[Rfam]
RNA sequence: CGAUAGGGUAGAGGCUGCAUUGUUUAAGAGUACCGCAUGCGAGAGUGACAUCGUAGACCAUGCGUGAAAGGAAGCAUUGCCGAAGUUUGAUGGAACGUCAAUUCCAUGAGGCUGGGGUCAUUUCGAAAAGGGAUGGCACUGUCAGGGACAGCUAUAUUGUCCAUGAUGAGCUACAAUCGUC
Numbered sequence: 001c002g003a004u005a006g007g008g009u010a011g012a013g014g015c016u017g018c019a020u021u022g023u024u025u026a027a028g029a030g031u032a033c034c035g036c037a038u039g040c041g042a043g044a045g046u047g048a049c050a051u052c053g054u055a056g057a058c059c060a061u062g063c064g065u066g067a068a069a070g071g072a073a074g075c076a077u078u079g080c081c082g083a084a085g086u087u088u089g090a091u092g093g094a095a096c097g098u099c100a101a102u103u104c105c106a107u108g109a110g111g112c113u114g115g116g117g118u119c120a121u122u123u124c125g126a127a128a129a130g131g132g133a134u135g136g137c138a139c140u141g142u143c144a145g146g147g148a149c150a151g152c153u154a155u156a157u158u159g160u161c162c163a164u165g166a167u168g169a170g171c172u173a174c175a176a177u178c179g180u181c
Stems, first nucleotide, its partner, number of pairs: 008174004017080003021076005034064006084113005090107006114140002117137008142166003146162005